Record summary:
Rfam assigns this 84-nucleotide RNA from Podarcis muralis to the family "Small nucleolar RNA U2-19". Rfam classes the family as a C/D-box small nucleolar RNA. The family's consensus secondary structure is taken from published work. The match comes from Rfam's covariance-model search (54 bits). For this family Rfam cites "Guide RNAs with 5' Caps and Novel Box C/D snoRNA-like Domains for Modification of snRNAs in Metazoa" (Tycowski et al., Curr Biol, 2004).
[Rfam]
RNA sequence: ACUCUGUGAUGAGAAUUAGCCAAAUCUGAGCGCCAAAAAGAUCAGCUGGUCUGUGCGGUGCAUGAUUUGUAAACUGUUCUGGGA
Numbered sequence: 001a002c003u004c005u006g007u008g009a010u011g012a013g014a015a016u017u018a019g020c021c022a023a024a025u026c027u028g029a030g031c032g033c034c035a036a037a038a039a040g041a042u043c044a045g046c047u048g049g050u051c052u053g054u055g056c057g058g059u060g061c062a063u064g065a066u067u068u069g070u071a072a073a074c075u076g077u078u079c080u081g082g083g084a
Stems, first nucleotide, its partner, number of pairs: 030061005039052004
Dot-bracket structure: .............................(((((....((((......))))....))))).......................